[Rfam]
RNA sequence: ACCGCUAAGCCAUCUCUCCAGCCCCAUUACUGAUUUUAAAAGUAAAAUUUAAUUUAAGGCUGGAGAGAUGGCUUAGCGGU
Number, nucleotide and partner (000 for none) at each position: 001a000002c079003c078004g077005c076006u075007a074008a073009g072010c071011c070012a069013u068014c067015u066016c065017u064018c063019c062020a061021g060022c059023c058024c000025c000026a000027u000028u000029a000030c000031u000032g000033a000034u000035u000036u000037u000038a000039a000040a000041a000042g000043u000044a000045a000046a000047a000048u000049u000050u000051a000052a000053u000054u000055u000056a000057a000058g023059g022060c021061u020062g019063g018064a017065g016066a015067g014068a013069u012070g011071g010072c009073u008074u007075a006076g005077c004078g003079g002080u000
Record summary: Rfam assigns this 80-nucleotide sequence from Jaculus jaculus to the family "mir-3473 microRNA precursor family". NCBI's taxonomy places the organism under Eukaryota, Craniata, Teleostomi, Glires, Jaculus. It scores 78 bits against the family's covariance model. The family's consensus secondary structure was predicted with RNAalifold.